[Rfam]
This 72-nucleotide sequence from Hordeum vulgare belongs to the Rfam family "Small nucleolar RNA snoR53Y". Gene Ontology terms of the family: nucleolus and RNA processing. A search with the family's covariance model found it, with a score of 68 bits. On this family, see Brown et al., RNA 2001: "Multiple snoRNA gene clusters from Arabidopsis". It is annotated as a C/D-box small nucleolar RNA. Taxonomically the source falls in Hordeum vulgare (Eukaryota, Magnoliopsida, Triticodae, Hordeum).

RNA sequence: GUUCCCAGUGAUGUAUUAACCAUGCUAAUGCUGAUUCCAUCUGACGAGCAAUUCAUUAUUACUGAGGGAACC
Numbered sequence: 001g002u003u004c005c006c007a008g009u010g011a012u013g014u015a016u017u018a019a020c021c022a023u024g025c026u027a028a029u030g031c032u033g034a035u036u037c038c039a040u041c042u043g044a045c046g047a048g049c050a051a052u053u054c055a056u057u058a059u060u061a062c063u064g065a066g067g068g069a070a071c072c
Stems, first nucleotide, its partner, number of pairs: 001071005